Rfam assigns this 43-nucleotide sequence from Auraticoccus monumenti to the family "L31-Actinobacteria ribosomal protein leader". NCBI's taxonomy places the organism under Bacteria, Actinomycetota, Actinomycetes, Propionibacteriaceae, Auraticoccus. The base pairs follow the family's consensus structure, which is taken from published work.
[Rfam]
RNA sequence: CUGGUGCCGGUUCACGUCCUGUGUCGCAGGGCGACCCGGCGCC
Numbered sequence: 001c002u003g004g005u006g007c008c009g010g011u012u013c014a015c016g017u018c019c020u021g022u023g024u025c026g027c028a029g030g031g032c033g034a035c036c037c038g039g040c041g042c043c
Stems, first nucleotide, its partner, number of pairs: 003043003007039004015033008
Notes: For this family Rfam cites "Discovery of 20 novel ribosomal leader candidates in bacteria and archaea" (Eckert and Weinberg, BMC Microbiol, 2020). It scores 44 bits against the family's covariance model. Rfam classes the family as a cis-regulatory leader.